[Rfam]
RNA: SAM riboswitch aptamer (S box leader)
Organism: Priestia megaterium
RNA sequence: UUCUUAUCUAGAGAGGUGGAGGGACUGGCCCUUUGAAGCCUCAGCAACCACAAUUAUUGAAUGGUGCUAAUUCCAGCAUAGCCUAGCUCUGACAGAUAAGAA
Numbered sequence: 001u002u003c004u005u006a007u008c009u010a011g012a013g014a015g016g017u018g019g020a021g022g023g024a025c026u027g028g029c030c031c032u033u034u035g036a037a038g039c040c041u042c043a044g045c046a047a048c049c050a051c052a053a054u055u056a057u058u059g060a061a062u063g064g065u066g067c068u069a070a071u072u073c074c075a076g077c078a079u080a081g082c083c084u085a086g087c088u089c090u091g092a093c094a095g096a097u098a099a100g101a102a
Stems, first nucleotide, its partner, number of pairs: 001102008013042005021031003025076004043068004048064002051059003072094001077091002080088003